RNA sequence: GUGACGUGAGGUAGUAAGUUGUGUUGUUGUUGGGGAUCAGGAUAGAGCGACCCCUGGAGGGAGAUAACUAUACAACUUACUGCCUUCCCCAC
Numbered sequence: 001g002u003g004a005c006g007u008g009a010g011g012u013a014g015u016a017a018g019u020u021g022u023g024u025u026g027u028u029g030u031u032g033g034g035g036a037u038c039a040g041g042a043u044a045g046a047g048c049g050a051c052c053c054c055u056g057g058a059g060g061g062a063g064a065u066a067a068c069u070a071u072a073c074a075a076c077u078u079a080c081u082g083c084c085u086u087c088c089c090c091a092c
Stems, first nucleotide, its partner, number of pairs: 001092003006087001008086017026068002032054004
Shown here is a 92-nucleotide RNA sequence from Clupea harengus, a member of the family "let-7 microRNA precursor family". Its Rfam clan is "let-7 microRNA precursor clan". The organism belongs to Clupea, within Eukaryota. This family represents the microRNAs (miRNA) let-7 and mir-98. let-7 was identified from a study of developmental timing in C. elegans, and was later shown to be part of a much larger class of non-coding RNAs termed miRNAs. Its family is annotated with RISC complex and miRNA-mediated post-transcriptional gene silencing in the Gene Ontology.